This 345-nucleotide RNA from Mesitornis unicolor belongs to the Rfam family "7SK RNA". Clan: 7SK clan. Rfam classes the family as a non-coding RNA gene. 7SK was discovered as an abundant small nuclear RNA in the mid-70s but a possible function has only recently been suggested. Two independent studies have found that 7SK RNA binds the CDK9/cyclin T complex (known as elongation factor P-TEFb). P-TEFb activates transcription by phosphorylating the C-terminal domain of RNA polymerase II. This process is negatively regulated by the 7SK RNP. The secondary structure of 7SK RNA shown here was proposed by Wasserman and Steitz on the basis of chemical modification and enzymatic cleavage experiments. NCBI's taxonomy places the organism under Eukaryota, Eumetazoa, Bilateria, Mesitornithiformes, Mesitornis.

[Rfam]
RNA sequence: GGACGUGAGGAUGAUCUGGCUGUGACAUCUGUAACCCCAUUGAUUGUCAGAGUCGAUUUGGCUGCUUUGGCUGGCUAAGUGGGUGUCCCUUCCUCCCUCACCACUCCAUCUAUGUCCGUCCUGAAACCAUGCACUUGGUCGAAGAGGAUGACCUUCCCCAACAGAGAUGUACCAUUAAUCGUUCAAGGGUAUACGGUAGCUACACUCCCCAGCUAGAAACUCCAAACAAGCUCUAGAAAGGUAGCAAUGAAAAGCACAGCGCACUCUAUUCAGGAGAAGGAAGAGGUGAGCGAGCAGAAGAAAGAAGAGGAAGCACUGACGUCUGUCUUGAGAAUGACUUGAUAU
Numbered sequence: 001g002g003a004c005g006u007g008a009g010g011a012u013g014a015u016c017u018g019g020c021u022g023u024g025a026c027a028u029c030u031g032u033a034a035c036c037c038c039a040u041u042g043a044u045u046g047u048c049a050g051a052g053u054c055g056a057u058u059u060g061g062c063u064g065c066u067u068u069g070g071c072u073g074g075c076u077a078a079g080u081g082g083g084u085g086u087c088c089c090u091u092c093c094u095c096c097c098u099c100a101c102c103a104c105u106c107c108a109u110c111u112a113u114g115u116c117c118g119u120c121c122u123g124a125a126a127c128c129a130u131g132c133a134c135u136u137g138g139u140c141g142a143a144g145a146g147g148a149u150g151a152c153c154u155u156c157c158c159c160a161a162c163a164g165a166g167a168u169g170u171a172c173c174a175u176u177a178a179u180c181g182u183u184c185a186a187g188g189g190u191a192u193a194c195g196g197u198a199g200c201u202a203c204a205c206u207c208c209c210c211a212g213c214u215a216g217a218a219a220c221u222c223c224a225a226a227c228a229a230g231c232u233c234u235a236g237a238a239a240g241g242u243a244g245c246a247a248u249g250a251a252a253a254g255c256a257c258a259g260c261g262c263a264c265u266c267u268a269u270u271c272a273g274g275a276g277a278a279g280g281a282a283g284a285g286g287u288g289a290g291c292g293a294g295c296a297g298a299a300g301a302a303a304g305a306a307g308a309g310g311a312a313g314c315a316c317u318g319a320c321g322u323c324u325g326u327c328u329u330g331a332g333a334a335u336g337a338c339u340u341g342a343u344a345u
Stems, first nucleotide, its partner, number of pairs: 001107003005101006013092002018089002024087009035074002037070003042067002045064001046062003116169001119165002121138004139161001141159001146157003199295003206288001208286002210283001213280001220276004230271001315345001319340001321338003324333001326331001